Rfam assigns this 593-nucleotide part of an RNA from Aphis gossypii to the family "Eukaryotic small subunit ribosomal RNA". Pairs were carried over by alignment from the consensus structure, which is taken from published work. A reference for the family is Yusupov et al. (2001), "Crystal structure of the ribosome at 5.5 A resolution", Science. Rfam 15.1 lists 75,755 matches to the family in 2,556 species.

[Rfam]
RNA sequence: CAUUCCAUUUAAUAUUAUUUAAUUUCCCAAAUUCAGAAACCCACAAAUUACAAUCUUCUAUAGUUUUAAUAUUUGAUCGAAUAACAUAAUCAUAAUAUUCUAGUUCAGUAAUUACUUUGUUAAUGAACAACUUAGGCAAAUGCAAAUUCAUUUUGCAAAUUAUUAUGGUACCUAAUUUGUAAAAUUGAAAACCAUAAAAACAAUAACCCAUUGAUGUAUUGUGAUAACAUAACAAUCAUUAUUGUAUUAGGUACUUGUUUUAUAUAUUAUAUUAUAUUAUAAUAUAUUAUUUUAUAUAAUAUUAUACAAUUUUAUCUAUAAUCUAUAAUCUAUUAUAAUUAUCAUAGAAUAAAACCGCGGCAAAUUUGAAUCGGCCAAUCAGAGAACAACGGUCGUGUAGCAAUGUACAGUAUGUUAAUAUGCCUCCCGGAAUGGGGAGGUAGUGACGAAAAAUAACGAUACGGGACUCAUCCGAGGCCCCGUAAUCGGAAUGAGAACACUUUAAAACCUUUAAACGAGGAUCAAUUGGAGGGCAAGUCUGGUGCCAGCAGCCGCGGUAAUUCCAGCUCCAAUAGCGUAUAUUAAAGUUGUUG
Numbered sequence: 001c002a003u004u005c006c007a008u009u010u011a012a013u014a015u016u017a018u019u020u021a022a023u024u025u026c027c028c029a030a031a032u033u034c035a036g037a038a039a040c041c042c043a044c045a046a047a048u049u050a051c052a053a054u055c056u057u058c059u060a061u062a063g064u065u066u067u068a069a070u071a072u073u074u075g076a077u078c079g080a081a082u083a084a085c086a087u088a089a090u091c092a093u094a095a096u097a098u099u100c101u102a103g104u105u106c107a108g109u110a111a112u113u114a115c116u117u118u119g120u121u122a123a124u125g126a127a128c129a130a131c132u133u134a135g136g137c138a139a140a141u142g143c144a145a146a147u148u149c150a151u152u153u154u155g156c157a158a159a160u161u162a163u164u165a166u167g168g169u170a171c172c173u174a175a176u177u178u179g180u181a182a183a184a185u186u187g188a189a190a191a192c193c194a195u196a197a198a199a200a201c202a203a204u205a206a207c208c209c210a211u212u213g214a215u216g217u218a219u220u221g222u223g224a225u226a227a228c229a230u231a232a233c234a235a236u237c238a239u240u241a242u243u244g245u246a247u248u249a250g251g252u253a254c255u256u257g258u259u260u261u262a263u264a265u266a267u268u269a270u271a272u273u274a275u276a277u278u279a280u281a282a283u284a285u286a287u288u289a290u291u292u293u294a295u296a297u298a299a300u301a302u303u304a305u306a307c308a309a310u311u312u313u314a315u316c317u318a319u320a321a322u323c324u325a326u327a328a329u330c331u332a333u334u335a336u337a338a339u340u341a342u343c344a345u346a347g348a349a350u351a352a353a354a355c356c357g358c359g360g361c362a363a364a365u366u367u368g369a370a371u372c373g374g375c376c377a378a379u380c381a382g383a384g385a386a387c388a389a390c391g392g393u394c395g396u397g398u399a400g401c402a403a404u405g406u407a408c409a410g411u412a413u414g415u416u417a418a419u420a421u422g423c424c425u426c427c428c429g430g431a432a433u434g435g436g437g438a439g440g441u442a443g444u445g446a447c448g449a450a451a452a453a454u455a456a457c458g459a460u461a462c463g464g465g466a467c468u469c470a471u472c473c474g475a476g477g478c479c480c481c482g483u484a485a486u487c488g489g490a491a492u493g494a495g496a497a498c499a500c501u502u503u504a505a506a507a508c509c510u511u512u513a514a515a516c517g518a519g520g521a522u523c524a525a526u527u528g529g530a531g532g533g534c535a536a537g538u539c540u541g542g543u544g545c546c547a548g549c550a551g552c553c554g555c556g557g558u559a560a561u562u563c564c565a566g567c568u569c570c571a572a573u574a575g576c577g578u579a580u581a582u583u584a585a586a587g588u589u590g591u592u593g
Stems, first nucleotide, its partner, number of pairs: 001410001004037002009035001011033001016029001054301001056299001059296004067289004122152004131142001173249003184240001186238002220229003260282004266277002308339001310337001320334003419442001422441003425437005457488003460484006467476003495516001497512001499511001526572006539566004548555002